[Rfam]
RNA sequence: GCACGGAGUGUGCAUAAGGACUCUGUUUGAGGCGGAUGCCUCUGGUGUACUUCCCCGACAUCAGAAACCUGCCUCAAACAGAGCCCUAUAUACACCCCAUCACCAC
Numbered sequence: 001g002c003a004c005g006g007a008g009u010g011u012g013c014a015u016a017a018g019g020a021c022u023c024u025g026u027u028u029g030a031g032g033c034g035g036a037u038g039c040c041u042c043u044g045g046u047g048u049a050c051u052u053c054c055c056c057g058a059c060a061u062c063a064g065a066a067a068c069c070u071g072c073c074u075c076a077a078a079c080a081g082a083g084c085c086c087u088a089u090a091u092a093c094a095c096c097c098c099a100u101c102a103c104c105a106c
Stems, first nucleotide, its partner, number of pairs: 010093003014089003018086002021083014041065008